The family of this 120-nucleotide RNA sequence from Iodidimonas nitroreducens is "Glycine riboswitch aptamer".

[Rfam]
RNA sequence: ACGACUCUGGAAAGCAGGUGGGCAGGGUCCACCUCACCGACGGGGAUAAGGCAGGCGCUGCGGCCAUCGGGCCAAAAGCGUCUGGCGAAAUCUCUCAGGUUCCGUGACAGAGGGGGCUUU
Numbered sequence: 001a002c003g004a005c006u007c008u009g010g011a012a013a014g015c016a017g018g019u020g021g022g023c024a025g026g027g028u029c030c031a032c033c034u035c036a037c038c039g040a041c042g043g044g045g046a047u048a049a050g051g052c053a054g055g056c057g058c059u060g061c062g063g064c065c066a067u068c069g070g071g072c073c074a075a076a077a078g079c080g081u082c083u084g085g086c087g088a089a090a091u092c093u094c095u096c097a098g099g100u101u102c103c104g105u106g107a108c109a110g111a112g113g114g115g116g117c118u119u120u
Stems, first nucleotide, its partner, number of pairs: 002115001005112005016034004036100003039096002043094003050086001
Overview: Lineage of the source: Bacteria > Pseudomonadati > Pseudomonadota > Alphaproteobacteria > Iodidimonas. The base pairs follow the family's consensus structure.